[Rfam]
The family of this 131-nucleotide sequence from Pantoea vagans is "RtT RNA".

RNA sequence: UUUCCCGCCGACCUGAGGGGGAUGAGAAGCCCCGAUUGGGGUUCGACAACUGGCGUCAGCCAGGUGGACAGCGGAGCCUGCGACGCUGCCCGAAGGGUGAGCGCAGCGAAUCAAUCCCCCUCUCACCGCCA
Numbered sequence: 001u002u003u004c005c006c007g008c009c010g011a012c013c014u015g016a017g018g019g020g021g022a023u024g025a026g027a028a029g030c031c032c033c034g035a036u037u038g039g040g041g042u043u044c045g046a047c048a049a050c051u052g053g054c055g056u057c058a059g060c061c062a063g064g065u066g067g068a069c070a071g072c073g074g075a076g077c078c079u080g081c082g083a084c085g086c087u088g089c090c091c092g093a094a095g096g097g098u099g100a101g102c103g104c105a106g107c108g109a110a111u112c113a114a115u116c117c118c119c120c121u122c123u124c125a126c127c128g129c130c131a
Stems, first nucleotide, its partner, number of pairs: 015122007023114001033099002036097002042094004049065002072085002076081001
A reference for the family is Bosl and Kersten (1991), "A novel RNA product of the tyrT operon of Escherichia coli", Nucleic Acids Res.
About the family: This family represents a bacterial cis-regulatory element known as RtT RNA. The exact function of RtT is unknown although it is thought that it may be involved in changing the cellular response in relation to amino acid starvation.
Pairs were carried over by alignment from the consensus structure, which is taken from published work.
Rfam 15.1 lists 651 matches to the family in 204 species.